[Rfam]
A member of the RNA family "gabT RNA" from Pseudomonas graminis, 60 nucleotides long.
The base pairs follow the family's consensus structure, which is taken from published work.
The family's RNA type in Rfam is cis-regulatory element.

Nucleotides: 060
Stems, first nucleotide, its partner, number of pairs: 001060006012047003016043008024032002
Number, partner (000 for none) and nucleotide at each position: 001060g002059g003058u004057g005056g006055c007000c008000g009000g010000g011000a012047g013046g014045c015000c016043g017042c018041g019040a020039c021038a022037g023036u024032c025031g026000a027000u028000c029000a030000u031025c032024g033000u034000a035000u036023g037022c038021u039020g040019u041018u042017g043016c044000u045014g046013u047012u048000g049000a050000c051000c052000c053000c054000c055006g056005c057004u058003g059002c060001u